[Rfam]
RNA: Ribosomal protein L10 leader
Organism: Limosilactobacillus reuteri
RNA sequence: UGAUUAAAUAUGACUCUGCCUAAGACUCAGGUGGCGAAAGCCUUAAUCGAAUGCCUGCCGAGGAAGAAAUGAAAGUUCCUUCUCUAUGUCUGCGGUCAUAGGGAUUUUUUUAUAAAUCC
Numbered sequence: 001u002g003a004u005u006a007a008a009u010a011u012g013a014c015u016c017u018g019c020c021u022a023a024g025a026c027u028c029a030g031g032u033g034g035c036g037a038a039a040g041c042c043u044u045a046a047u048c049g050a051a052u053g054c055c056u057g058c059c060g061a062g063g064a065a066g067a068a069a070u071g072a073a074a075g076u077u078c079c080u081u082c083u084c085u086a087u088g089u090c091u092g093c094g095g096u097c098a099u100a101g102g103g104a105u106u107u108u109u110u111u112a113u114a115a116a117u118c119c
Stems, first nucleotide, its partner, number of pairs: 028057005033042003081104008090095001